[Rfam]
RNA sequence: GCUGUUGAAAUGAUGAGUCUUCAUGUCUCUUCUCUGACAUAAUAAUGGAGAGAGCUUAAACACAUCUGAUAUCAGC
Numbered sequence: 001g002c003u004g005u006u007g008a009a010a011u012g013a014u015g016a017g018u019c020u021u022c023a024u025g026u027c028u029c030u031u032c033u034c035u036g037a038c039a040u041a042a043u044a045a046u047g048g049a050g051a052g053a054g055c056u057u058a059a060a061c062a063c064a065u066c067u068g069a070u071a072u073c074a075g076c
Stems, first nucleotide, its partner, number of pairs: 001076004